[Rfam]
RNA sequence: UGCCCAGUGCCGGUGUGUUAAGCUGGCCUACAAUCCAGUGAAGCCCCGGUAAACGGCGGCGGUAACUCUGACCGUUGACUUAGGCGGUCACAAAAUUUGGCUAUAUGCGGGAACUCCAUAGUAUUUCGGGUCCUGAGUAAGGAAAAAUCCCGGAAACGAUGAUGGAUAAUCCGCAGGAAACUGUUUGCUUCAUGGAGGUGGUUACCAUGAAGAAAAGCGAACAAGAGCUGAGCAAGCUCUUGAGAAAGAAACGUUAUCUGAGAUUUUACAUCUUGGGUUUCGUUGAUGCCGAGGGUUGUUUUAGCGUAUCACUAAAACAGCAGAAAACAACGAGAUUUGGCUGGGUACUUGAUCCAUUGUUCCAGGUAACUCAACACGAAACAAACAGAAUAGUUCUUGAACAGAUAAAAGGAGAAUUGGGUUGCGGAAGAAUAAUCGAAAAACCCGGUCAGAAAGAUACACUGAUAUAUUUGGUUGAUAACCGAAGACAGUUGAACGAAAAGGUAAUUCCGUUCUUUGAAAGAUACAGACUUGUUUCGAAGGAUGGCGAUUUCCAGAAGUUCAAAAAAAUCAUUAAAGGACUUGAAAACAAGGAACAUA
Numbered sequence: 001u002g003c004c005c006a007g008u009g010c011c012g013g014u015g016u017g018u019u020a021a022g023c024u025g026g027c028c029u030a031c032a033a034u035c036c037a038g039u040g041a042a043g044c045c046c047c048g049g050u051a052a053a054c055g056g057c058g059g060c061g062g063u064a065a066c067u068c069u070g071a072c073c074g075u076u077g078a079c080u081u082a083g084g085c086g087g088u089c090a091c092a093a094a095a096u097u098u099g100g101c102u103a104u105a106u107g108c109g110g111g112a113a114c115u116c117c118a119u120a121g122u123a124u125u126u127c128g129g130g131u132c133c134u135g136a137g138u139a140a141g142g143a144a145a146a147a148u149c150c151c152g153g154a155a156a157c158g159a160u161g162a163u164g165g166a167u168a169a170u171c172c173g174c175a176g177g178a179a180a181c182u183g184u185u186u187g188c189u190u191c192a193u194g195g196a197g198g199u200g201g202u203u204a205c206c207a208u209g210a211a212g213a214a215a216a217g218c219g220a221a222c223a224a225g226a227g228c229u230g231a232g233c234a235a236g237c238u239c240u241u242g243a244g245a246a247a248g249a250a251a252c253g254u255u256a257u258c259u260g261a262g263a264u265u266u267u268a269c270a271u272c273u274u275g276g277g278u279u280u281c282g283u284u285g286a287u288g289c290c291g292a293g294g295g296u297u298g299u300u301u302u303a304g305c306g307u308a309u310c311a312c313u314a315a316a317a318c319a320g321c322a323g324a325a326a327a328c329a330a331c332g333a334g335a336u337u338u339g340g341c342u343g344g345g346u347a348c349u350u351g352a353u354c355c356a357u358u359g360u361u362c363c364a365g366g367u368a369a370c371u372c373a374a375c376a377c378g379a380a381a382c383a384a385a386c387a388g389a390a391u392a393g394u395u396c397u398u399g400a401a402c403a404g405a406u407a408a409a410a411g412g413a414g415a416a417u418u419g420g421g422u423u424g425c426g427g428a429a430g431a432a433u434a435a436u437c438g439a440a441a442a443a444c445c446c447g448g449u450c451a452g453a454a455a456g457a458u459a460c461a462c463u464g465a466u467a468u469a470u471u472u473g474g475u476u477g478a479u480a481a482c483c484g485a486a487g488a489c490a491g492u493u494g495a496a497c498g499a500a501a502a503g504g505u506a507a508u509u510c511c512g513u514u515c516u517u518u519g520a521a522a523g524a525u526a527c528a529g530a531c532u533u534g535u536u537u538c539g540a541a542g543g544a545u546g547g548c549g550a551u552u553u554c555c556a557g558a559a560g561u562u563c564a565a566a567a568a569a570a571u572c573a574u575u576a577a578a579g580g581a582c583u584u585g586a587a588a589a590c591a592a593g594g595a596a597c598a599u600a
Stems, first nucleotide, its partner, number of pairs: 002057003007054002009050005017044002023038004058076006